[Rfam]
RNA: tRNA
RNA sequence: GGAUCGGUGGAUGAGCGGUUUAAGUCACACGCCUGGAAAGCGUGCGAGGGGUAAAACCCUCCGCGGGUUCGAAUCCCGCCUGAUCCG
Dot-bracket structure: (((((((..(((...........))).(((((.......)))))..................(((((.......)))))))))))).